The record is a 134-nucleotide RNA sequence from Rhinopomastus cyanomelas, which matches "Small Cajal body specific RNA 15" in Rfam.
Pairs were carried over by alignment from the consensus structure, which was predicted with RNAfold.
Lineage of the source: Eukaryota > Eumetazoa > Amniota > Neoaves > Rhinopomastus.
Rfam classes the family as a small Cajal body RNA.
Rfam describes the family as follows. scaRNAs are a specific class of small nuclear RNAs which localise to the Cajal bodies and guide the modification of RNA polymerase II transcribed spliceosomal RNAs U1, U2, U4, U5 and U12. ACA45 belongs to the H/ACA box class of guide RNAs as it has the predicted hairpin-hinge-hairpin-tail structure, the conserved H/ACA-box motifs and is found associated with GAR1. ACA45 is predicted to guide the pseudouridylation of residue U37 of the U2 spliceosomal snRNA.
[Rfam]
RNA sequence: CUGGAGGACUAAGAAAGUGGAGCCAGUGAUACAGUACUGACUCCAUUGAUACUAUCCUCCUAAAUGAAAUGGGGUGGAAGAACAUGGCCUGCCUGUAAGAUAAAAGUCAGGACCUACUUCGUCUACCUACAGGC
Numbered sequence: 001c002u003g004g005a006g007g008a009c010u011a012a013g014a015a016a017g018u019g020g021a022g023c024c025a026g027u028g029a030u031a032c033a034g035u036a037c038u039g040a041c042u043c044c045a046u047u048g049a050u051a052c053u054a055u056c057c058u059c060c061u062a063a064a065u066g067a068a069a070u071g072g073g074g075u076g077g078a079a080g081a082a083c084a085u086g087g088c089c090u091g092c093c094u095g096u097a098a099g100a101u102a103a104a105a106g107u108c109a110g111g112a113c114c115u116a117c118u119u120c121g122u123c124u125a126c127c128u129a130c131a132g133g134c
Stems, first nucleotide, its partner, number of pairs: 003060006010051002018045005024039001026035002073127006080120001086114002088111004